[Rfam]
Rfam assigns this 248-nucleotide RNA from Bacillus sp. MRMR6 to the family "BsrG". The match comes from Rfam's covariance-model search (134 bits). Rfam links the family to the GO terms toxin activity and autolysis. bsrE, bsrG and bsrH pair through intermolecular interactions with antisense sRNAs. They form type I toxin/antitoxin system that includes an mRNA encoding for a short, toxic peptide (bsrE, bsrG and bsrH) and an antitoxin that is comprised of an antisense RNA. bsrG encodes a 39-amino-acid toxin, and the 180 nucleotide antisense sRNA called SR4 acts as the antitoxin (they overlap by 123 nucleotides). SR4 interaction with the 3'UTR of bsrG RNA promotes bsrG degradation and inhibits its translation. The literature on the family includes a 2015 paper in Mol Microbiol by Jahn et al., "Against the mainstream: the membrane-associated type I toxin BsrG from Bacillus subtilis interferes with cell envelope biosynthesis without increasing membrane permeability".
RNA sequence: GCAAUAGAAUAGGUUUAUCUCAAGGGUGGUCGGCACAUUCCCUAUUGAAAGGGGGUGAUGCUGAAUGACGGUUUUUGAAACCUUAAUGUUUACGGUUGCUUUUACAAGCUUAAUCGUAGCAGUACUGUCAUUUAACCAAAAAAAAUAACCCACCCUUGAGUUAGAGGCUCAGGUGAGUUAUCCCGCCAAUAUAGCCGAUCCACUAGGGAACGUCUAUUGCUAGACCGGACAUGUUACCAGCAUGUUCG
Number, nucleotide and partner (000 for none) at each position: 001g220002c219003a218004a217005u216006a000007g214008a213009a000010u210011a000012g196013g195014u194015u193016u000017a000018u000019c160020u159021c158022a157023a156024g155025g154026g153027u000028g150029g149030u148031c000032g000033g000034c000035a000036c057037a056038u000039u054040c053041c052042c051043u050044a000045u000046u000047g000048a000049a000050a043051g042052g041053g040054g039055g000056u037057g036058a000059u000060g000061c000062u000063g000064a000065a000066u000067g129068a128069c127070g126071g125072u124073u000074u000075u000076u000077g000078a000079a000080a000081c094082c000083u000084u000085a000086a000087u000088g000089u000090u000091u000092a000093c000094g081095g000096u000097u000098g000099c000100u000101u000102u000103u121104a000105c119106a000107a000108g000109c000110u000111u000112a000113a000114u000115c000116g000117u000118a000119g105120c000121a103122g000123u000124a072125c071126u070127g069128u068129c067130a000131u000132u000133u000134a000135a000136c000137c000138a000139a000140a000141a000142a000143a000144a000145a000146u000147a000148a030149c029150c028151c000152a000153c026154c025155c024156u023157u022158g021159a020160g019161u000162u000163a000164g000165a000166g000167g000168c000169u000170c185171a000172g183173g000174u000175g000176a000177g000178u000179u000180a000181u000182c000183c172184c000185g170186c000187c000188a000189a000190u000191a000192u000193a015194g014195c013196c012197g000198a000199u209200c208201c207202a000203c000204u000205a000206g000207g201208g200209a199210a010211c000212g000213u008214c007215u000216a005217u004218u003219g002220c001221u000222a000223g000224a000225c000226c248227g247228g246229a245230c244231a243232u242233g241234u240235u239236a000237c000238c000239a235240g234241c233242a232243u231244g230245u229246u228247c227248g226